[Rfam]
The record is a 148-nucleotide RNA from Monodelphis domestica, which matches "Small nucleolar RNA SNORA79" in Rfam. It is annotated as an H/ACA-box small nucleolar RNA. The family's consensus secondary structure was predicted with RNAalifold. Rfam's curators write: ACA65 (SNORA79) is a member of the H/ACA class of snoRNAs that guide the sites of modification of uridines to pseudouridines. This snoRNA was identified by computational screening and its expression in mouse experimentally verified by Northern blot and primer extension analysis.
RNA sequence: AGAUGGCUGUUCCUCUCAUUGCUUUUGAGUUUUGGCAGUGGGAUUUUAGGCCAUCACAGAUCAAAUCUGGUCUUUUCUUCACUCAGGGCACCAUUGGAUGGAUUGGCCAUCCGUUAGUGCUUUCUGAAUUUUGCGGGGCCAGACAUAA
Numbered sequence: 001a002g003a004u005g006g007c008u009g010u011u012c013c014u015c016u017c018a019u020u021g022c023u024u025u026u027g028a029g030u031u032u033u034g035g036c037a038g039u040g041g042g043a044u045u046u047u048a049g050g051c052c053a054u055c056a057c058a059g060a061u062c063a064a065a066u067c068u069g070g071u072c073u074u075u076u077c078u079u080c081a082c083u084c085a086g087g088g089c090a091c092c093a094u095u096g097g098a099u100g101g102a103u104u105g106g107c108c109a110u111c112c113g114u115u116a117g118u119g120c121u122u123u124c125u126g127a128a129u130u131u132u133g134c135g136g137g138g139c140c141a142g143a144c145a146u147a148a
Stems, first nucleotide, its partner, number of pairs: 002055007014043005020037004069140006083127005088120004096112005